The family of this 375-nucleotide sequence from Ligilactobacillus salivarius is "Bacterial RNase P class B". The family is grouped with related families in Rfam's "RNaseP clan". The family's RNA type in Rfam is ribozyme. Ribonuclease P (RNase P) is a ubiquitous endoribonuclease, found in archaea, bacteria and eukarya as well as chloroplasts and mitochondria. Its best characterised activity is the generation of mature 5'-ends of tRNAs by cleaving the 5'-leader elements of precursor-tRNAs. A reference for the family is Frank and Pace (1998), "Ribonuclease P: unity and diversity in a tRNA processing ribozyme", Annu Rev Biochem.
RNA sequence: AAUUUCUGGUAAUCGCGGUCUAUGUAUAUAGGCUGAGGAAAGUCCAAGCUUGCACAGGCUGAGAUGCCUGUAGUGAUCGUACUUGCUGAAAAAAUAAGGCAAGGCACUGCUUUUAGUAGUGACGGCAGACAAAAGAGCUAAGGUUUCGGCUAUGCUUGAGUAGUCUUGAAAAGUGCCACAGUGACGAAGUAAUAUAGGAAACUGUAUUAGUGGAACGCGGUAAACCCUGCGAGCAGGUAACCCAAACUUUGGUAGGGGCGCUUCAUGAUGGAAAUGAACUAAUCAUGGGGGCGAGUUUUUUAACUCGGAGAUAGAUGAUUACCACCGAUUCUAAUUUUCCUGAAUUAGAUGACGUACAGAACGUGGCUUAUAGAG
Dot-bracket structure: ...(((.(((((((.((((((........))))))....[[[.[[[.[(((((((((((......)))))).....(((((((((((..........))))))(((((((.....)))))).)((.((((....((((...(((....)))..)))).....))))......(((((............((((((((....)))))))).........)))..))))))))))))))...(((...........)))...(((((((................))))))).(((((......))))).........))))))).(....(((((((......)))))))....).......].]]]]]]...)))